[Rfam]
RNA: Mason-Pfizer monkey virus packaging signal
Organism: Microtus ochrogaster
RNA sequence: UAGCUUCCAACAUGGGUCUCGAGCAUGGGGGAUUCAGUGAAGAACACUGUUCAGAGAGGCCGGCAUGAAGUGAAGUAUAAUCAAGAGGAAGAGAAACAUAGGAGCCUGCUGUGUCUUCUGAACCUCAGUAAGUAGAACAGUGAUCAUGAGACACGCAAUUUGCCAGUGUGAAAUGUUUAUUAGUAGAUUAAGGCAUGCUUUAAAGGCACAAGAGGUAAAAAUUAAAAUUAAACAGUUGUGUGAAUUCUUUGACUAUAUUAAAAAUGUUUGUCCCU
Number, nucleotide and partner (000 for none) at each position: 001u000002a000003g000004c000005u000006u031007c030008c029009a000010a000011c000012a026013u025014g024015g000016g000017u000018c000019u000020c000021g000022a000023g000024c014025a013026u012027g000028g000029g008030g007031g006032a000033u000034u000035c049036a048037g047038u046039g000040a000041a000042g000043a000044a000045c000046a038047c037048u036049g035050u000051u000052c000053a000054g000055a000056g000057a000058g000059g000060c000061c000062g000063g000064c000065a000066u000067g000068a000069a000070g000071u000072g000073a000074a000075g000076u000077a000078u000079a000080a000081u000082c000083a000084a000085g126086a125087g124088g000089a000090a000091g000092a119093g117094a116095a000096a000097c113098a112099u111100a110101g109102g000103a000104g000105c000106c000107u000108g000109c101110u100111g099112u098113g097114u000115c000116u094117u093118c000119u092120g000121a000122a000123c000124c087125u086126c085127a000128g000129u000130a000131a000132g154133u153134a000135g152136a000137a000138c150139a000140g000141u148142g147143a000144u000145c000146a000147u142148g141149a000150g138151a000152c135153a133154c132155g000156c000157a000158a000159u202160u000161u000162g198163c197164c000165a000166g000167u000168g000169u000170g000171a000172a000173a000174u000175g000176u000177u000178u000179a000180u000181u000182a000183g000184u000185a000186g000187a000188u000189u000190a000191a000192g000193g000194c000195a000196u000197g163198c162199u000200u000201u000202a159203a000204a000205g000206g000207c000208a000209c251210a250211a249212g248213a000214g246215g245216u244217a000218a000219a237220a236221a000222u234223u000224a000225a000226a000227a000228u000229u000230a000231a000232a000233c000234a222235g000236u220237u219238g000239u000240g000241u000242g000243a000244a216245u215246u214247c000248u212249u211250u210251g209252a000253c000254u000255a000256u000257a000258u000259u000260a275261a000262a000263a000264a271265u270266g000267u000268u000269u000270g265271u264272c000273c000274c000275u260